RNA sequence: ACCUCAUCCAGAGGGGCAGAGGGAACGGCCCUGUGAAGCCCCGGCAACCACCGCGUAUGUCUCGAUGACGAGGCCGCAUGCGGCAGGUGCUAAUUCCGUCCCCGCGGCAGGUCGCCGCCGGGAAAGAUGAGAG
Numbered sequence: 001a002c003c004u005c006a007u008c009c010a011g012a013g014g015g016g017c018a019g020a021g022g023g024a025a026c027g028g029c030c031c032u033g034u035g036a037a038g039c040c041c042c043g044g045c046a047a048c049c050a051c052c053g054c055g056u057a058u059g060u061c062u063c064g065a066u067g068a069c070g071a072g073g074c075c076g077c078a079u080g081c082g083g084c085a086g087g088u089g090c091u092a093a094u095u096c097c098g099u100c101c102c103c104g105c106g107g108c109a110g111g112u113c114g115c116c117g118c119c120g121g122g123a124a125a126g127a128u129g130a131g132a133g
Stems, first nucleotide, its partner, number of pairs: 003131006013042005021031003025099004043091004048087002051083006095125001100122003104118005
A member of the RNA family "SAM riboswitch aptamer (S box leader)" from Actinoplanes cyaneus, 133 nucleotides long.